[Rfam]
RNA: Bacterial large signal recognition particle RNA
RNA sequence: CCGUGCUAGAUGGGGAGUUAGCGGUGCCCUGUAACCCGUAAUCCGCUAUAACGGGAUUGAAUUCCUGUCCGAGGUUCGAUCCUUGCGGGGUUUGGUCCAUGUGGAAGGUGUUGACGAACAGGUCCUGCGCAACGGGAACCUUUGAACCGUGUCAGGUCCUGACGGAAGCAGCACUAAGGAGUGCUUUCCGUGUGCCGUAGGGGUGCCUGAUCUGAGUUGACCACAUGGAGCCCACCCGGGGGGAUCGUGUCGAUGGCAGGUGCACGG
Numbered sequence: 001c002c003g004u005g006c007u008a009g010a011u012g013g014g015g016a017g018u019u020a021g022c023g024g025u026g027c028c029c030u031g032u033a034a035c036c037c038g039u040a041a042u043c044c045g046c047u048a049u050a051a052c053g054g055g056a057u058u059g060a061a062u063u064c065c066u067g068u069c070c071g072a073g074g075u076u077c078g079a080u081c082c083u084u085g086c087g088g089g090g091u092u093u094g095g096u097c098c099a100u101g102u103g104g105a106a107g108g109u110g111u112u113g114a115c116g117a118a119c120a121g122g123u124c125c126u127g128c129g130c131a132a133c134g135g136g137a138a139c140c141u142u143u144g145a146a147c148c149g150u151g152u153c154a155g156g157u158c159c160u161g162a163c164g165g166a167a168g169c170a171g172c173a174c175u176a177a178g179g180a181g182u183g184c185u186u187u188c189c190g191u192g193u194g195c196c197g198u199a200g201g202g203g204u205g206c207c208u209g210a211u212c213u214g215a216g217u218u219g220a221c222c223a224c225a226u227g228g229a230g231c232c233c234a235c236c237c238g239g240g241g242g243g244a245u246c247g248u249g250u251c252g253a254u255g256g257c258a259g260g261u262g263c264a265c266g267g
Stems, first nucleotide, its partner, number of pairs: 001267006009058003012030004017025003035055005064260006073251003077247001080244005086238004093234002096229006104222001107218003116212002119209005124201006130192002133190005140181004149174004157166003